[Rfam]
RNA sequence: AACUAUCAUUAAGAAUCUCUGGAAAGAGGUAGCAACCUGCCAAAACAGGCGAAGGUGCUAAAACAAUGAGCCUAACCAUUAGGAAAAGUAUGUGUCACU
Numbered sequence: 001a002a003c004u005a006u007c008a009u010u011a012a013g014a015a016u017c018u019c020u021g022g023a024a025a026g027a028g029g030u031a032g033c034a035a036c037c038u039g040c041c042a043a044a045a046c047a048g049g050c051g052a053a054g055g056u057g058c059u060a061a062a063a064c065a066a067u068g069a070g071c072c073u074a075a076c077c078a079u080u081a082g083g084a085a086a087a088g089u090a091u092g093u094g095u096c097a098c099u
Stems, first nucleotide, its partner, number of pairs: 006069005015030006031059003036055003039050003043095001045093003071083004

Rfam assigns this 99-nucleotide sequence from Subsaximicrobium wynnwilliamsii to the family "SAM-I/IV (S-adenosyl methionine) riboswitch aptamer". Taxonomically the source falls in Subsaximicrobium (Bacteria, Bacteroidota, Flavobacteriia, Flavobacteriaceae). Clan: SAM clan.